[Rfam]
RNA sequence: GUGGGGCCAGGCGGCCAUGGGCACAGCUGGGGUGGGCACAGCAGCCAUGCAGUGCAGGCCUCUGACCCCCGUGUCUCCCACUUCUCCAG
Numbered sequence: 001g002u003g004g005g006g007c008c009a010g011g012c013g014g015c016c017a018u019g020g021g022c023a024c025a026g027c028u029g030g031g032g033u034g035g036g037c038a039c040a041g042c043a044g045c046c047a048u049g050c051a052g053u054g055c056a057g058g059c060c061u062c063u064g065a066c067c068c069c070c071g072u073g074u075c076u077c078c079c080a081c082u083u084c085u086c087c088a089g
Stems, first nucleotide, its partner, number of pairs: 002088005011079001013078002017074002019068003022064002024057001026055002030050001032048004
This 89-nucleotide sequence from Saimiri boliviensis belongs to the Rfam family "mir-1227 microRNA precursor family". A search with the family's covariance model found it, with a score of 71 bits. Pairs were carried over by alignment from the consensus structure, which was predicted with RNAalifold. Gene Ontology terms of the family: miRNA-mediated post-transcriptional gene silencing and RISC complex.